[Rfam]
RNA: tRNA
RNA sequence: UGUCGCGUGGUGUAAUGGUAACACAAAAGAUUCUGGUCCUUUAAUUCGGGGUUCGAGUCCCUGCGCGACAG
Numbered sequence: 001u002g003u004c005g006c007g008u009g010g011u012g013u014a015a016u017g018g019u020a021a022c023a024c025a026a027a028a029g030a031u032u033c034u035g036g037u038c039c040u041u042u043a044a045u046u047c048g049g050g051g052u053u054c055g056a057g058u059c060c061c062u063g064c065g066c067g068a069c070a071g
Stems, first nucleotide, its partner, number of pairs: 001070007010024004026042004047063005